Plastid-ndhJ 3UTR RNA: a 57-nucleotide RNA sequence from Durio zibethinus. By type it is a cis-regulatory element. The family's consensus secondary structure was predicted with LocARNA. Rfam 15.1 lists 869 matches to the family in 155 species. Plastid ndhJ is a non-coding RNA (ncRNA) present in plastids. The match comes from Rfam's covariance-model search (47 bits). A reference for the family is Richter et al. (2023), "Retrograde signaling in plants: A critical review focusing on the GUN pathway and beyond", Plant Commun.
[Rfam]
RNA sequence: ACAAAGAUUUUAUAUCGCGUACAUCACUUAGAUGAACUUUAGAUAGUCGCAUAAAAA
Dot-bracket structure: ..................((.((((.....)))).))....................